[Rfam]
RNA sequence: UCCGAUGUGGUCUAGUGGCUAGGAUUACCCGCUCUCAUCAGUGAGCACUUCUGUACCGGGUAGGCCCGGGUUCAAUUCCCGGCAUCGGAA
Numbered sequence: 001u002c003c004g005a006u007g008u009g010g011u012c013u014a015g016u017g018g019c020u021a022g023g024a025u026u027a028c029c030c031g032c033u034c035u036c037a038u039c040a041g042u043g044a045g046c047a048c049u050u051c052u053g054u055a056c057c058g059g060g061u062a063g064g065c066c067c068g069g070g071u072u073c074a075a076u077u078c079c080c081g082g083c084a085u086c087g088g089a090a
Stems, first nucleotide, its partner, number of pairs: 001089007010025004027061005066082005